[Rfam]
RNA sequence: CCGUUACGUGAUGACGUGACAGAUGAAGUGUCAUGUCAUCACACUUUGUCACAGACAUCUCAUUGUCACAUCACCACCUUCAUUGACGUGACACUGACGUGUUAGUGAUUGGACGUGAUGACUUGACACUCCGUCUACCACAAUAUUACUUAACGAAA
Numbered sequence: 001c002c003g004u005u006a007c008g009u010g011a012u013g014a015c016g017u018g019a020c021a022g023a024u025g026a027a028g029u030g031u032c033a034u035g036u037c038a039u040c041a042c043a044c045u046u047u048g049u050c051a052c053a054g055a056c057a058u059c060u061c062a063u064u065g066u067c068a069c070a071u072c073a074c075c076a077c078c079u080u081c082a083u084u085g086a087c088g089u090g091a092c093a094c095u096g097a098c099g100u101g102u103u104a105g106u107g108a109u110u111g112g113a114c115g116u117g118a119u120g121a122c123u124u125g126a127c128a129c130u131c132c133g134u135c136u137a138c139c140a141c142a143a144u145a146u147u148a149c150u151u152a153a154c155g156a157a158a
Stems, first nucleotide, its partner, number of pairs: 002155005008149006016141003021136005027130007035122008045112002048109005054103005071086003

The family of this 158-nucleotide sequence from Glycine soja is "MIR4371 microRNA precursor family". Taxonomically the source falls in Glycine subgen. Soja (Eukaryota, Streptophyta, Tracheophyta, Euphyllophyta). Its family is annotated with RISC complex and miRNA-mediated post-transcriptional gene silencing in the Gene Ontology. The match comes from Rfam's covariance-model search (114 bits).